[Rfam]
Notes:
The record is a 334-nucleotide RNA from Erwinia sp. OLSSP12, which matches "RNase E 5' UTR element" in Rfam. The match comes from Rfam's covariance-model search (220 bits). About the family: This family represents a conserved element found in the 5' UTR of RNase E mRNA. RNase E is a key regulatory enzyme in the pathway of mRNA degradation in E. coli that is able to auto-regulate the degradation of its own mRNA in response to changes in RNase E activity. This rne 5' UTR element acts as a sensor of cellular RNase E concentration enabling tight regulation of RNase E concentration and synthesis.
RNA sequence: GUUUUCCUGCAAACUUUGCGAAAACAAGAAAAAAGCGUAUUAAUAAUAUUUUGCCGGAUAGCACAUACACGCAGCAAUGGCGUAAGACGUUUUGUGAAAUCAGGCAUUUAGCGGGCUGCGGGUUGCAGCCUGGACGGUAAAACGGGAUUGGUUCACUUGCUGUUUUCAGUAGCGGCCCCCCCCUGUAAGCGCUGUUAUUCCAUAUGAAAAACAGGCUGCCGAGAGUUUGCGCCCCUUAGCUGGCGACAACCGUGAGGUUGACGACAAAGCAAAGAGACACGGGGCCAUCGGUGAUUCACGUCCAGCGUCAUCAUGCCCGUAGCUCUGUCACUAA
Numbered sequence: 001g002u003u004u005u006c007c008u009g010c011a012a013a014c015u016u017u018g019c020g021a022a023a024a025c026a027a028g029a030a031a032a033a034a035g036c037g038u039a040u041u042a043a044u045a046a047u048a049u050u051u052u053g054c055c056g057g058a059u060a061g062c063a064c065a066u067a068c069a070c071g072c073a074g075c076a077a078u079g080g081c082g083u084a085a086g087a088c089g090u091u092u093u094g095u096g097a098a099a100u101c102a103g104g105c106a107u108u109u110a111g112c113g114g115g116c117u118g119c120g121g122g123u124u125g126c127a128g129c130c131u132g133g134a135c136g137g138u139a140a141a142a143c144g145g146g147a148u149u150g151g152u153u154c155a156c157u158u159g160c161u162g163u164u165u166u167c168a169g170u171a172g173c174g175g176c177c178c179c180c181c182c183c184u185g186u187a188a189g190c191g192c193u194g195u196u197a198u199u200c201c202a203u204a205u206g207a208a209a210a211a212c213a214g215g216c217u218g219c220c221g222a223g224a225g226u227u228u229g230c231g232c233c234c235c236u237u238a239g240c241u242g243g244c245g246a247c248a249a250c251c252g253u254g255a256g257g258u259u260g261a262c263g264a265c266a267a268a269g270c271a272a273a274g275a276g277a278c279a280c281g282g283g284g285c286c287a288u289c290g291g292u293g294a295u296u297c298a299c300g301u302c303c304a305g306c307g308u309c310a311u312c313a314u315g316c317c318c319g320u321a322g323c324u325c326u327g328u329c330a331c332u333a334a
Base pairs, nucleotide, nucleotide: 003039005037007035008034015028016027017026018025052106053105054104055103057101058100062096063095064094065093069090070089071088074081075080113325114324115323116322117321118320119319120318121317122316123315131304132303133302134301135300136299144179145178146177148175154169188217189216190215192214193213194212195211198208199207200206218292219291220290221289222288231285232284233283234282235281244263245262247260248259249258250257251256
The base pairs follow the family's consensus structure, which is taken from published work. By type it is a cis-regulatory element. On this family, see Diwa et al., Genes Dev 2000: "An evolutionarily conserved RNA stem-loop functions as a sensor that directs feedback regulation of RNase E gene expression". Gene Ontology term of the family: regulation of gene expression.